Overview
Shown here is a 132-nucleotide sequence from Bemisia tabaci, a member of the family "Small nucleolar RNA snoR639/H1". The organism belongs to Bemisia, within Eukaryota. By type it is an H/ACA-box small nucleolar RNA. The base pairs follow the family's consensus structure. Rfam describes the family as follows. snoR639 or snoH1 belongs to the H/ACA class of snoRNAs which are thought to guide the sites of modification of uridines to pseudouridines. snoH1 is found in an intron of the mfl gene in Drosophila.
RNA sequence: ACCCCACAAUUUUAAGCCGGCUAAAUCAUGCUUCAUCAUCAUUUAGUGUGCUCUGCGUGGGAACAUCAACCGAUAUCAUGUGUAUGAUGAUUAUUUUCCUUUUGAAUUUUCAUCAAAGGACGAUAUCAGACA
Numbered sequence: 001a002c003c004c005c006a007c008a009a010u011u012u013u014a015a016g017c018c019g020g021c022u023a024a025a026u027c028a029u030g031c032u033u034c035a036u037c038a039u040c041a042u043u044u045a046g047u048g049u050g051c052u053c054u055g056c057g058u059g060g061g062a063a064c065a066u067c068a069a070c071c072g073a074u075a076u077c078a079u080g081u082g083u084a085u086g087a088u089g090a091u092u093a094u095u096u097u098c099c100u101u102u103u104g105a106a107u108u109u110u111c112a113u114c115a116a117a118g119g120a121c122g123a124u125a126u127c128a129g130a131c132a
Stems, first nucleotide, its partner, number of pairs: 020047007073126004085115006095106003